[Rfam]
RNA sequence: GUGGGUUACGGUGACAUGAGGCCGGUGACGGUCGGAGGGAAGAUCGUGGGCUCUCUGUGCGCCAUCGCCGGAGUGCUCACCAUCGCGCUGCCGGUGCCCGUCAUCGUGUCCAAC
Numbered sequence: 001g002u003g004g005g006u007u008a009c010g011g012u013g014a015c016a017u018g019a020g021g022c023c024g025g026u027g028a029c030g031g032u033c034g035g036a037g038g039g040a041a042g043a044u045c046g047u048g049g050g051c052u053c054u055c056u057g058u059g060c061g062c063c064a065u066c067g068c069c070g071g072a073g074u075g076c077u078c079a080c081c082a083u084c085g086c087g088c089u090g091c092c093g094g095u096g097c098c099c100g101u102c103a104u105c106g107u108g109u110c111c112a113a114c
Base pairs, nucleotide, nucleotide: 001114002113004111005110007108008107009106010105011104013102014101015100018097021095022094037077038076040074049063050062051061
Potassium channel RNA editing signal: a 114-nucleotide sequence from Neolamprologus brichardi. By type it is a cis-regulatory element. The family's consensus secondary structure is taken from published work. Rfam's curators write: This family represents a group of sequences related to the human potassium channel Kv1.1 hairpin element which directs the efficient modification of an adenosine to inosine by an adenosine deaminase acting on RNA (ADAR). NCBI's taxonomy places the organism under Eukaryota, Opisthokonta, Eurypterygia, Lamprologini, Neolamprologus. The literature on the family includes a 2004 paper in Nat Struct Mol Biol by Bhalla et al., "Control of human potassium channel inactivation by editing of a small mRNA hairpin".